T-box leader: a 218-nucleotide sequence from Clostridium tetanomorphum.

RNA sequence: GUAAAAGCUUUGAAAAAGAGGAGUAGAGGAUAAUAAUACCAAGAGAGGAAAGUUCAAUGGGUGAAAGACUUUCUGUAUGAGUUUCCUUGAAGGUAGCUUUUGAGCUUCUUUACUGAAAUAGUAGUAGGUAAAGACGGUUUUCUUAAUCGUUAAAUUUAUAAGAGCCUGUAAUUUAUUUUGCAGGAAAAAAGGUGGUAACGCGCGCUGUCGUCCUUUUA
Dot-bracket structure: ......((......((((.......(((((......(((.......((((((((............)))))))))))......)))))........))))...))..(((((((............))))))).(((.........)))...............(((((((......)))))))....((((.......(((......)))))))...
Numbered sequence: 001g002u003a004a005a006a007g008c009u010u011u012g013a014a015a016a017a018g019a020g021g022a023g024u025a026g027a028g029g030a031u032a033a034u035a036a037u038a039c040c041a042a043g044a045g046a047g048g049a050a051a052g053u054u055c056a057a058u059g060g061g062u063g064a065a066a067g068a069c070u071u072u073c074u075g076u077a078u079g080a081g082u083u084u085c086c087u088u089g090a091a092g093g094u095a096g097c098u099u100u101u102g103a104g105c106u107u108c109u110u111u112a113c114u115g116a117a118a119u120a121g122u123a124g125u126a127g128g129u130a131a132a133g134a135c136g137g138u139u140u141u142c143u144u145a146a147u148c149g150u151u152a153a154a155u156u157u158a159u160a161a162g163a164g165c166c167u168g169u170a171a172u173u174u175a176u177u178u179u180g181c182a183g184g185a186a187a188a189a190a191g192g193u194g195g196u197a198a199c200g201c202g203c204g205c206u207g208u209c210g211u212c213c214u215u216u217u218a
Stems, first nucleotide, its partner, number of pairs: 007105002015100004026088005037077003047074008108133007135149003165184007189215004200211003

The match comes from Rfam's covariance-model search (126 bits).